[Rfam]
RNA: MIR398 microRNA precursor family
RNA sequence: AAUUGCCCCAAAGGAGUGUAGCUGAGAACACGGGUGGAUUUGGGUGCACUGCACCAAUUCCAAUCCACUUGUGUUCUCAGGUCACCCCUUUGGGAACCGC
Numbered sequence: 001a002a003u004u005g006c007c008c009c010a011a012a013g014g015a016g017u018g019u020a021g022c023u024g025a026g027a028a029c030a031c032g033g034g035u036g037g038a039u040u041u042g043g044g045u046g047c048a049c050u051g052c053a054c055c056a057a058u059u060c061c062a063a064u065c066c067a068c069u070u071g072u073g074u075u076c077u078c079a080g081g082u083c084a085c086c087c088c089u090u091u092g093g094g095a096a097c098c099g100c
Stems, first nucleotide, its partner, number of pairs: 007094002011090004016085003024078010